[Rfam]
RNA sequence: UAUCGAUACUACUAAACUAUCCGUGAGGAUAGGACGGAAAGCCUACAGGGUCUCACCGAGACAGCCAGGUCGCCGAA
Numbered sequence: 001u002a003u004c005g006a007u008a009c010u011a012c013u014a015a016a017c018u019a020u021c022c023g024u025g026a027g028g029a030u031a032g033g034a035c036g037g038a039a040a041g042c043c044u045a046c047a048g049g050g051u052c053u054c055a056c057c058g059a060g061a062c063a064g065c066c067a068g069g070u071c072g073c074c075g076a077a
Base pairs, nucleotide, nucleotide: 012037013036017032018031019030020029021028022027041070042069043068048066049065050062051061052060053059054058
The family of this 77-nucleotide RNA sequence from Trichlorobacter lovleyi is "c-di-GMP-I riboswitch aptamer". The source organism's lineage runs through Bacteria, Pseudomonadati, Thermodesulfobacteriota, Trichlorobacter and Trichlorobacter lovleyi. Its family is annotated with cyclic-di-GMP binding in the Gene Ontology. Clan: c-di-GMP_I riboswitch clan. From the family's description: GEMM was predicted in a large-scale screen for bacterial structured RNA regulatory elements.